[Rfam]
RNA: MIR854 microRNA precursor family
Organism: Arabidopsis lyrata
RNA sequence: UGGAUGUGGACAGGGAUGAAGAGUAUGAUAUGAGCAUGUAUCACUUUGGCGAGCAUGUAGCGCCAUCUAGAGAGAGCAAGAGCCUGAGUGAAGCUCACAGAAACAACAGCCUGUUGCAGAAGUGGUGCAAGAAACAAGGUAAGUUCAUCGCCAAAUGCCUGAAGAGUAUCAAGUCUCUAAAGGCUAUGGUAAGCUGCUCCUCCUCCUCCACAGCUAUACCG
Numbered sequence: 001u002g003g004a005u006g007u008g009g010a011c012a013g014g015g016a017u018g019a020a021g022a023g024u025a026u027g028a029u030a031u032g033a034g035c036a037u038g039u040a041u042c043a044c045u046u047u048g049g050c051g052a053g054c055a056u057g058u059a060g061c062g063c064c065a066u067c068u069a070g071a072g073a074g075a076g077c078a079a080g081a082g083c084c085u086g087a088g089u090g091a092a093g094c095u096c097a098c099a100g101a102a103a104c105a106a107c108a109g110c111c112u113g114u115u116g117c118a119g120a121a122g123u124g125g126u127g128c129a130a131g132a133a134a135c136a137a138g139g140u141a142a143g144u145u146c147a148u149c150g151c152c153a154a155a156u157g158c159c160u161g162a163a164g165a166g167u168a169u170c171a172a173g174u175c176u177c178u179a180a181a182g183g184c185u186a187u188g189g190u191a192a193g194c195u196g197c198u199c200c201u202c203c204u205c206c207u208c209c210a211c212a213g214c215u216a217u218a219c220c221g
Stems, first nucleotide, its partner, number of pairs: 001221003013208001014206003018202002021199005